A member of the RNA family "c-di-GMP-I riboswitch aptamer" from Armatimonas rosea, 95 nucleotides long. Pairs were carried over by alignment from the consensus structure, which is taken from published work. NCBI's taxonomy places the organism under Bacteria, Bacillati, Armatimonadota, Armatimonadaceae, Armatimonas.
[Rfam]
RNA sequence: AAGCGUGCAGGGCAAAGCGUCCCGAAAGGGCGUGACGCAAAACCACGGGCCUUCUGUCUUCCUCUCGGGGAAGUCCUGGUAGCCGGGUUGCCGCG
Numbered sequence: 001a002a003g004c005g006u007g008c009a010g011g012g013c014a015a016a017g018c019g020u021c022c023c024g025a026a027a028g029g030g031c032g033u034g035a036c037g038c039a040a041a042a043c044c045a046c047g048g049g050c051c052u053u054c055u056g057u058c059u060u061c062c063u064c065u066c067g068g069g070g071a072a073g074u075c076c077u078g079g080u081a082g083c084c085g086g087g088u089u090g091c092c093g094c095g
Stems, first nucleotide, its partner, number of pairs: 012038002017033004022029002041089004046085003049080003056074002